[Rfam]
RNA: Archaeal large subunit ribosomal RNA, nucleotides 2069 to 2651
RNA sequence: CCCCCAAGGGGAAGCGAAGACCCUAUAGAGCUUUACUGCAGGCUGUCGCUGAGACGUGGUCGCUAAUGUGCAGCAUAGGUAGGAGCCGUUACACAGGUACCCGCGCCAGCGGGCCACCGAGGCAGCAUUGAAAUACUACCCGUUAGUGACUGCGACUCUCACUCCUGGCGGAGGACACCGGUAGCCGGGCAGUUUGACUGGGGCGGUACGCGCUCGAAAAGAUAUCGAGCGCGCCCAAAGAUUUCCUCACGCGAGUCGGGAACUCGUGGAAGAGCGCAAGAGCAAACGGAAGUCUGACAGUGACAUUCCCAACGAGUGUCGCUGACGCGAAAGCGUGGUCUAGCGAACCUACGAGGUUCAUUCAUGGGACCCGUAGAUGACAGAAAAGCUACCUUAGGGAUAACAGAGUCGUCACCCGCAAGAGCACAUAUCGACCGGGUGGCUUGCUACCUCGAUGUCGGUUCCCUCCAUCCUGCCUGUGCAGAAGCAGGCAAGGGUGAGGUUGUUCGCCUAUUAAAGGAGGUCGUGAGCUGGGUUUAGACCGUCGUGAGACAGGUCGGCUGCUAUCUAUUGGGGGUGCUAA
Number, nucleotide and partner (000 for none) at each position: 001c577002c576003c575004c574005c573006a572007a571008g000009g000010g569011g568012a567013a000014g564015c563016g000017a000018a000019g000020a000021c000022c398023c397024u396025a395026u000027a394028g393029a390030g389031c388032u387033u386034u000035a193036c192037u191038g190039c000040a000041g000042g185043c184044u183045g182046u181047c180048g179049c000050u000051g158052a157053g156054a000055c154056g153057u152058g151059g150060u149061c148062g147063c146064u145065a144066a143067u142068g141069u000070g000071c000072a000073g000074c000075a000076u000077a000078g140079g139080u138081a137082g136083g000084a000085g123086c122087c121088g000089u000090u000091a000092c000093a000094c000095a000096g000097g000098u000099a000100c113101c112102c111103g110104c109105g000106c000107c000108a000109g104110c103111g102112g101113g100114c000115c000116a000117c000118c000119g000120a000121g087122g086123c085124a000125g000126c000127a000128u000129u000130g000131a000132a000133a000134u000135a000136c082137u081138a080139c079140c078141c068142g067143u066144u065145a064146g063147u062148g061149a060150c059151u058152g057153c056154g055155a000156c053157u052158c051159u000160c000161a000162c173163u172164c171165c170166u000167g000168g000169c000170g165171g164172a163173g162174g000175a000176c000177a000178c000179c048180g047181g046182u045183a044184g043185c042186c000187g000188g000189g000190c038191a037192g036193u035194u000195u000196g209197a207198c206199u205200g000201g000202g000203g000204c000205g199206g198207u197208a000209c196210g232211c231212g230213c229214u228215c227216g000217a000218a000219a000220a000221g000222a000223u000224a000225u000226c000227g215228a214229g213230c212231g211232c210233g000234c000235c338236c337237a000238a000239a000240g000241a293242u292243u291244u290245c289246c288247u273248c272249a000250c268251g267252c266253g265254a264255g263256u000257c000258g000259g000260g000261a000262a000263c255264u254265c253266g252267u251268g250269g000270a000271a000272g248273a247274g283275c282276g000277c000278a000279a000280g000281a000282g275283c274284a000285a000286a000287c000288g246289g245290a244291a243292g242293u241294c000295u000296g000297a000298c324299a323300g322301u321302g320303a319304c318305a317306u316307u000308c000309c000310c000311a000312a000313c000314g000315a000316g306317u305318g304319u303320c302321g301322c300323u299324g298325a000326c335327g000328c333329g000330a000331a000332a000333g328334c000335g326336u000337g236338g235339u000340c000341u000342a000343g000344c000345g000346a000347a000348c000349c376350u375351a374352c373353g372354a000355g371356g370357u369358u368359c367360a000361u000362u000363c000364a000365u000366g000367g359368g358369a357370c356371c355372c353373g352374u351375a350376g349377a000378u000379g000380a000381c000382a000383g000384a000385a000386a033387a032388g031389c030390u029391a000392c000393c028394u027395u025396a024397g023398g022399g000400a000401u000402a000403a000404c000405a000406g000407a448408g447409u446410c000411g445412u442413c441414a440415c439416c438417c437418g436419c000420a000421a000422g432423a431424g000425c000426a000427c000428a000429u000430a000431u423432c422433g000434a000435c000436c418437g417438g416439g415440u414441g413442g412443c000444u000445u411446g409447c408448u407449a000450c000451c000452u000453c000454g000455a000456u000457g000458u000459c534460g532461g531462u530463u529464c526465c523466c522467u521468c520469c519470a000471u000472c497473c496474u000475g000476c491477c490478u489479g488480u487481g000482c000483a000484g000485a000486a000487g480488c479489a478490g477491g476492c000493a000494a000495g000496g473497g472498u000499g000500a512501g511502g510503u509504u000505g000506u000507u000508c000509g503510c502511c501512u500513a000514u000515u000516a000517a000518a000519g469520g468521a467522g466523g465524u000525c000526g464527u000528g000529a463530g462531c461532u460533g000534g459535g000536u000537u000538u000539a000540g558541a557542c556543c555544g553545u552546c551547g000548u000549g000550a000551g546552a545553c544554a000555g543556g542557u541558c540559g000560g000561c000562u000563g015564c014565u000566a000567u012568c011569u010570a000571u007572u006573g005574g004575g003576g002577g001578u000579g000580c000581u000582a000583a000